A member of the RNA family "SAM riboswitch aptamer (S box leader)" from Exiguobacterium chiriqhucha, 101 nucleotides long. NCBI's taxonomy places the organism under Bacteria, Bacillati, Bacillota, Exiguobacterium, Exiguobacterium chiriqhucha.
[Rfam]
RNA sequence: UUUCUAUCAAGAGAAGCGGAGGGACUGGCCCGAUGAAGCUUCAGCAACAGAUUGAUUCAAUACUGUGCUAAUUCCAGCAAGGUGACCUUGAGAGAUGGAAA
Numbered sequence: 001u002u003u004c005u006a007u008c009a010a011g012a013g014a015a016g017c018g019g020a021g022g023g024a025c026u027g028g029c030c031c032g033a034u035g036a037a038g039c040u041u042c043a044g045c046a047a048c049a050g051a052u053u054g055a056u057u058c059a060a061u062a063c064u065g066u067g068c069u070a071a072u073u074c075c076a077g078c079a080a081g082g083u084g085a086c087c088u089u090g091a092g093a094g095a096u097g098g099a100a101a
Stems, first nucleotide, its partner, number of pairs: 001101008013042005021031003025077004043069004048065002051061004073093001078090005